[Rfam]
RNA sequence: AGCGAGACUAGAGUCACAUAUAAUCCUUGCCCGUGGUUAAGGUGUGCUAGAGUACUCGCAGAAUAAUUGCCACUCUAUUCACUGGCUGUUUCUUAUAAACUAGUCGGCCACCAGGUUGGUAACAUUA
Numbered sequence: 001a002g003c004g005a006g007a008c009u010a011g012a013g014u015c016a017c018a019u020a021u022a023a024u025c026c027u028u029g030c031c032c033g034u035g036g037u038u039a040a041g042g043u044g045u046g047c048u049a050g051a052g053u054a055c056u057c058g059c060a061g062a063a064u065a066a067u068u069g070c071c072a073c074u075c076u077a078u079u080c081a082c083u084g085g086c087u088g089u090u091u092c093u094u095a096u097a098a099a100c101u102a103g104u105c106g107g108c109c110a111c112c113a114g115g116u117u118g119g120u121a122a123c124a125u126u127a
Stems, first nucleotide, its partner, number of pairs: 002059005007053003012048002015046005023038001025036002070119003074115003082107004087102001088100003
A member of the RNA family "Small nucleolar RNA SNORA3/SNORA45 family" from Alligator mississippiensis, 127 nucleotides long. Rfam classes the family as an H/ACA-box small nucleolar RNA. Clan: SNORA3 clan. From the family's description: The members of this family belong to the H/ACA class of snoRNAs which are thought to guide the sites of modification of uridines to pseudouridines. This family includes mouse snoMBI-28 and human homologues ACA3 (SNORA3) and ACA3-2 (SNORA45). Both ACA3 and ACA3-2 share the same host gene. A search with the family's covariance model found it, with a score of 68 bits. Rfam 15.1 lists 2,080 matches to the family in 639 species. Its family is annotated with nucleolus and RNA processing in the Gene Ontology.